[Rfam]
RNA sequence: AUUUAAGUUUUCUAGGGUUCCGCAAUCUAUAAUUGGUAAUUGGCAGGUCCGAGAGAAAACACACAGUUAUCUGUGUACACGGAAGGAUAAAAGCCUGGGAGAU
Numbered sequence: 001a002u003u004u005a006a007g008u009u010u011u012c013u014a015g016g017g018u019u020c021c022g023c024a025a026u027c028u029a030u031a032a033u034u035g036g037u038a039a040u041u042g043g044c045a046g047g048u049c050c051g052a053g054a055g056a057a058a059a060c061a062c063a064c065a066g067u068u069a070u071c072u073g074u075g076u077a078c079a080c081g082g083a084a085g086g087a088u089a090a091a092a093g094c095c096u097g098g099g100a101g102a103u
Base pairs, nucleotide, nucleotide: 007060008059009058010057011056012055015050016049020047021046022044023042024041025040026039061076062075063074064073065072066071078098080101084096085095086094
Notes: A member of the RNA family "Guanidine-I riboswitch aptamer" from Clostridium oryzae, 103 nucleotides long. This family represents a conserved RNA structure found upstream of the ykkC and yxkD genes in Bacillus subtilis and related genes in other bacteria. The function of this family is unclear although it has been suggested that it may function to switch on efflux pumps and detoxification systems in response to harmful environmental molecules. The match comes from Rfam's covariance-model search (84 bits). The organism belongs to Clostridium, within Bacteria.